[Rfam]
RNA sequence: UGACAGUUGUUCUUGCUGAAACGGGACGAUAACUCCUUACCGAGACUAUGCAAGUAAAAUACGUCUCUUAUGCUACCUUUCUCUUGAGGGUAGAGAAAGGAAAUCAAGUAAA
Numbered sequence: 001u002g003a004c005a006g007u008u009g010u011u012c013u014u015g016c017u018g019a020a021a022c023g024g025g026a027c028g029a030u031a032a033c034u035c036c037u038u039a040c041c042g043a044g045a046c047u048a049u050g051c052a053a054g055u056a057a058a059a060u061a062c063g064u065c066u067c068u069u070a071u072g073c074u075a076c077c078u079u080u081c082u083c084u085u086g087a088g089g090g091u092a093g094a095g096a097a098a099g100g101a102a103a104u105c106a107a108g109u110a111a112a
Stems, first nucleotide, its partner, number of pairs: 013053004042067005077099007

Shown here is a 112-nucleotide RNA, a member of the family "PhotoRC-II RNA".